A member of the RNA family "Small nucleolar RNA U6-53/MBII-28" from Sphenodon punctatus, 109 nucleotides long. Lineage of the source: Eukaryota > Chordata > Sauropsida > Sphenodontidae > Sphenodon. It scores 85 bits against the family's covariance model.
RNA sequence: CACCCAUGAUGACUCCGCCAUGCUAAUACCGAGGCACCGAGCAGGGCCACUGGUCCUACUCCGGGUGUCAGUGAGUUCAACUCGCUUCUCACAAGGAGACCUGAGGUGC
Numbered sequence: 001c002a003c004c005c006a007u008g009a010u011g012a013c014u015c016c017g018c019c020a021u022g023c024u025a026a027u028a029c030c031g032a033g034g035c036a037c038c039g040a041g042c043a044g045g046g047c048c049a050c051u052g053g054u055c056c057u058a059c060u061c062c063g064g065g066u067g068u069c070a071g072u073g074a075g076u077u078c079a080a081c082u083c084g085c086u087u088c089u090c091a092c093a094a095g096g097a098g099a100c101c102u103g104a105g106g107u108g109c
Stems, first nucleotide, its partner, number of pairs: 001108004043057004

Pairs were carried over by alignment from the consensus structure.